M-box riboswitch aptamer (ykoK leader): a 168-nucleotide RNA from Lactobacillus johnsonii. Taxonomically the source falls in Lactobacillus johnsonii (Bacteria, Lactobacillales, Lactobacillaceae, Lactobacillus). The pairing is the family consensus, mapped onto this sequence. On this family, see Barrick et al., Proc Natl Acad Sci U S A 2004: "New RNA motifs suggest an expanded scope for riboswitches in bacterial genetic control".
RNA sequence: CAAAUAAACUGUUAGGUGAGACUCCUACGUAAAUAUAUGCUGAUGCCCAGGAACAUCCAGAGAUGCCAACGGGUCAAACAGGAACUGUCGAGUUAAGUCUUUUCCCAGUCAGCUAGUUGAAAAAACUUUACGUUACGUAGUGUUAAAACUGAACGACGAGUAUUAAAU
Dot-bracket structure: .....(.((((([.(((..(((..((((((((......(((((.((((.....((((....)))).....))))......((((..(.(......]).)..))))...))))).(((.......))).....)))))))).)))...)))..))....))).).....